[Rfam]
RNA sequence: CUUGUACACGGUAACUGACGACAAUGAGUGGAGUUUACCACAUGGGAACUGUGUUACAUAUAUUGUCGGGUCGUCUGGGCGGAGAUA
Number, nucleotide and partner (000 for none) at each position: 001c000002u000003u000004g000005u000006a054007c053008a052009c051010g050011g049012u048013a000014a000015c045016u044017g075018a074019c073020g072021a071022c000023a000024a000025u000026g000027a000028g041029u040030g039031g038032a000033g000034u000035u000036u000037a000038c031039c030040a029041c028042a000043u000044g016045g015046g000047a000048a012049c011050u010051g009052u008053g007054u006055u000056a000057c000058a000059u000060a000061u000062a000063u082064u081065g080066u079067c078068g000069g000070g000071u021072c020073g019074u018075c017076u000077g000078g067079g066080c065081g064082g063083a000084g000085a000086u000087a000
RNA: ZMP/ZTP riboswitch aptamer (pfl RNA motif)
Organism: Falsibacillus albus